[Rfam]
RNA sequence: AUGCCAGGCGAGCGCGCUACCGCUUGAGCCACAUCCCCAGCCCCAUACCUAGGAUUUUUAAAUAAGAUGAAAUUUGGGGCUGGGGAUGUGGCUCAAGCGGUAGCGCGCUCGCCUGGCAU
Numbered sequence: 001a002u003g004c005c006a007g008g009c010g011a012g013c014g015c016g017c018u019a020c021c022g023c024u025u026g027a028g029c030c031a032c033a034u035c036c037c038c039a040g041c042c043c044c045a046u047a048c049c050u051a052g053g054a055u056u057u058u059u060a061a062a063u064a065a066g067a068u069g070a071a072a073u074u075u076g077g078g079g080c081u082g083g084g085g086a087u088g089u090g091g092c093u094c095a096a097g098c099g100g101u102a103g104c105g106c107g108c109u110c111g112c113c114u115g116g117c118a119u
Stems, first nucleotide, its partner, number of pairs: 001119028030090002033087013047073001
The record is a 119-nucleotide RNA from Urocitellus parryii, which matches "mir-2513 microRNA precursor family" in Rfam. Pairs were carried over by alignment from the consensus structure, which was predicted with RNAalifold.